[Rfam]
RNA sequence: GAGCAAAGCGACGGGUGCUGUGAAUUUCAGAUCACGGCUGAGAUCAUACCGUUUGAACUCGAACAAGUUAAUGCUUGCGUGAGAAUUGUGUUUGCUCUUUUUC
Numbered sequence: 001g002a003g004c005a006a007a008g009c010g011a012c013g014g015g016u017g018c019u020g021u022g023a024a025u026u027u028c029a030g031a032u033c034a035c036g037g038c039u040g041a042g043a044u045c046a047u048a049c050c051g052u053u054u055g056a057a058c059u060c061g062a063a064c065a066a067g068u069u070a071a072u073g074c075u076u077g078c079g080u081g082a083g084a085a086u087u088g089u090g091u092u093u094g095c096u097c098u099u100u101u102u103c
Base pairs, nucleotide, nucleotide: 006091008089009088010087011052012051013050014049016046017038018037019036020035021034022033023032058083059082060081061080064077065076066075067074
RNA: TPP riboswitch aptamer (THI element)